[Rfam]
RNA sequence: CCGGUACCGGUUCACGUCCGCUAUCCAGGGAUUUUCCCGAGGGCGACCCGGCGACC
Numbered sequence: 001c002c003g004g005u006a007c008c009g010g011u012u013c014a015c016g017u018c019c020g021c022u023a024u025c026c027a028g029g030g031a032u033u034u035u036c037c038c039g040a041g042g043g044c045g046a047c048c049c050g051g052c053g054a055c056c
Stems, first nucleotide, its partner, number of pairs: 003056003007051004015045005
The family of this 56-nucleotide RNA sequence is "L31-Actinobacteria ribosomal protein leader". On this family, see Eckert and Weinberg, BMC Microbiol 2020: "Discovery of 20 novel ribosomal leader candidates in bacteria and archaea". Its Rfam clan is "Ribosomal Protein L31 Leader clan".